[Rfam]
RNA sequence: GCCUCUGUGUGAUAUGUUUGAUAUUAGGUUGUUUGAUUAGAAAAUCGACUCAAUAUCAAACAUAUUCUUACAGCGCC
Numbered sequence: 001g002c003c004u005c006u007g008u009g010u011g012a013u014a015u016g017u018u019u020g021a022u023a024u025u026a027g028g029u030u031g032u033u034u035g036a037u038u039a040g041a042a043a044a045u046c047g048a049c050u051c052a053a054u055a056u057c058a059a060a061c062a063u064a065u066u067c068u069u070a071c072a073g074c075g076c077c
Base pairs, nucleotide, nucleotide: 005073006072007071008070009069011066012065013064014063015062016061017060018059019058020057021056022055023054024053025052027050028049029048030047031046